[Rfam]
RNA sequence: GGACGAGCCUCUGGAGAGACUCUUUAGAGCACCGAAGGAGAAAGCUGUUUGAAAUAUCUUAAUUCAACAGUGAAACUUUCAGGUAAAAGGACAGGGGAAUGUUU
Numbered sequence: 001g002g003a004c005g006a007g008c009c010u011c012u013g014g015a016g017a018g019a020c021u022c023u024u025u026a027g028a029g030c031a032c033c034g035a036a037g038g039a040g041a042a043a044g045c046u047g048u049u050u051g052a053a054a055u056a057u058c059u060u061a062a063u064u065c066a067a068c069a070g071u072g073a074a075a076c077u078u079u080c081a082g083g084u085a086a087a088a089g090g091a092c093a094g095g096g097g098a099a100u101g102u103u104u
Base pairs, nucleotide, nucleotide: 008097009096010095011094012093013092020029021028022027031084032083033082034080035079038078039077040076044071045070046069047068048067049066
RNA: Glycine riboswitch aptamer
Organism: Clostridium sp. N3C